Small nucleolar RNA SNORA57: a 137-nucleotide sequence from Etheostoma spectabile.
Rfam links the family to the GO terms RNA processing and nucleolus.
Rfam classes the family as an H/ACA-box small nucleolar RNA.
The match comes from Rfam's covariance-model search (76 bits).
Rfam 15.1 lists 1,736 matches to the family in 530 species.
From the family's description: U99 belongs to the H/ACA class of snoRNAs which are thought to guide the sites of modification of uridines to pseudouridines, the target for this family is unknown.

RNA sequence: CCUCCUUUCUUGGCAUACUCGUUGUUUUCCUGCACACGUGUGUGUAUGUGAUGGAGGAAUAUGAUAGUCCAAUGCUAUGUCUUCGGUGCCAGAAAGUCAACCAUCGUCUGGUUCUAUCCUCAAUCACUGGCACAUUU
Numbered sequence: 001c002c003u004c005c006u007u008u009c010u011u012g013g014c015a016u017a018c019u020c021g022u023u024g025u026u027u028u029c030c031u032g033c034a035c036a037c038g039u040g041u042g043u044g045u046a047u048g049u050g051a052u053g054g055a056g057g058a059a060u061a062u063g064a065u066a067g068u069c070c071a072a073u074g075c076u077a078u079g080u081c082u083u084c085g086g087u088g089c090c091a092g093a094a095a096g097u098c099a100a101c102c103a104u105c106g107u108c109u110g111g112u113u114c115u116a117u118c119c120u121c122a123a124u125c126a127c128u129g130g131c132a133c134a135u136u137u
Stems, first nucleotide, its partner, number of pairs: 001057005014044005021037001023036003070129002073126002089111005096105001